[Rfam]
RNA sequence: GCAUUUAUGUAGAUUAGCCUGAUAAAACAGGCUAGGGCUGGUGAAUAUUUGUUCACCAGCCU
Numbered sequence: 001g002c003a004u005u006u007a008u009g010u011a012g013a014u015u016a017g018c019c020u021g022a023u024a025a026a027a028c029a030g031g032c033u034a035g036g037g038c039u040g041g042u043g044a045a046u047a048u049u050u051g052u053u054c055a056c057c058a059g060c061c062u
Base pairs, nucleotide, nucleotide: 016033017032018031019030036061037060038059039058040057041056042055043054044053045052
The record is a 62-nucleotide sequence, which matches "Pseudomonas sRNA P26" in Rfam. The match comes from Rfam's covariance-model search (46 bits). The family's RNA type in Rfam is non-coding RNA gene. This small RNA (sRNA) was computationally identified in the genome of the opportunistic pathogen Pseudomonas aeruginosa and its expression verified by northern blot analysis. P26 is conserved across many Gammaproteobacteria species and appears to be consistently located between the DNA directed RNA polymerase (beta subunit) and 50S ribosomal protein L7/L12 genes.